Group II catalytic intron D1-D4-3: a 173-nucleotide sequence from Salsuginibacillus halophilus.
RNA sequence: UCCGUUGUGAAGCGGAAUCUGAAGGAAGUCGGAGGCAAACUUCCGCCCCGAGGCAUACGAAUCUCAUAAGUAGGCUGUCGCUUUUGGAUGAGACUGCUAAACAAGUUAAAAUCCGAACGACCAAAGGAAGCGGCAGUAAAUGAGGCGGGGACGUGGAAGGGAAGAUGUCAGGC
Numbered sequence: 001u002c003c004g005u006u007g008u009g010a011a012g013c014g015g016a017a018u019c020u021g022a023a024g025g026a027a028g029u030c031g032g033a034g035g036c037a038a039a040c041u042u043c044c045g046c047c048c049c050g051a052g053g054c055a056u057a058c059g060a061a062u063c064u065c066a067u068a069a070g071u072a073g074g075c076u077g078u079c080g081c082u083u084u085u086g087g088a089u090g091a092g093a094c095u096g097c098u099a100a101a102c103a104a105g106u107u108a109a110a111a112u113c114c115g116a117a118c119g120a121c122c123a124a125a126g127g128a129a130g131c132g133g134c135a136g137u138a139a140a141u142g143a144g145g146c147g148g149g150g151a152c153g154u155g156g157a158a159g160g161g162a163a164g165a166u167g168u169c170a171g172g173c
Stems, first nucleotide, its partner, number of pairs: 001016006028173003032169001036164001040159006046150005062145006074137003078133007086114004092107004
The pairing is the family consensus, mapped onto this sequence.
A reference for the family is Bonen and Vogel (2001), "The ins and outs of group II introns", Trends Genet.
Its family is annotated with Group II intron splicing in the Gene Ontology.
Rfam describes the family as follows. Group II introns are found in rRNA, tRNA and mRNA of organelles in fungi, plants and protists, and also in mRNA in bacteria.
The organism belongs to Salsuginibacillus, within Bacteria.